[Rfam]
RNA sequence: UAGAGGAUGAUGAAAACAAUCAGACGGAUUCCCAUUGAUUGUUACAUGAGAACACUGCCAGCUACUUCCGACUCUU
Numbered sequence: 001u002a003g004a005g006g007a008u009g010a011u012g013a014a015a016a017c018a019a020u021c022a023g024a025c026g027g028a029u030u031c032c033c034a035u036u037g038a039u040u041g042u043u044a045c046a047u048g049a050g051a052a053c054a055c056u057g058c059c060a061g062c063u064a065c066u067u068c069c070g071a072c073u074c075u076u
Base pairs, nucleotide, nucleotide: 002075003074004073005072
A member of the RNA family "Small nucleolar RNA R12" from Hibiscus syriacus, 76 nucleotides long. The family's RNA type in Rfam is C/D-box small nucleolar RNA. Rfam links the family to the GO terms nucleolus and RNA processing. It scores 60 bits against the family's covariance model. snoR12 is a C/D box small nucleolar RNA, which acts as a methylation guide for 25S ribosomal RNA in plants. snoR12 has been alternatively named snoZ44 in Arabidopsis and snoZ131 in rice.